[Rfam]
RNA sequence: CCUGUGGAGUGUUACACCAAACGAAAGUAGCUUCGGCAAAAUCGGACACGAUGAAUCAGGAA
Numbered sequence: 001c002c003u004g005u006g007g008a009g010u011g012u013u014a015c016a017c018c019a020a021a022c023g024a025a026a027g028u029a030g031c032u033u034c035g036g037c038a039a040a041a042u043c044g045g046a047c048a049c050g051a052u053g054a055a056u057c058a059g060g061a062a
Base pairs, nucleotide, nucleotide: 001060002059003058004057009049010048011047012046013045022044023043024042030037031036
A member of the RNA family "RAGATH-18 RNA" from Heyndrickxia coagulans, 62 nucleotides long. The source organism's lineage runs through Bacteria, Bacilli, Bacillaceae, Heyndrickxia and Heyndrickxia coagulans. The family's RNA type in Rfam is small RNA.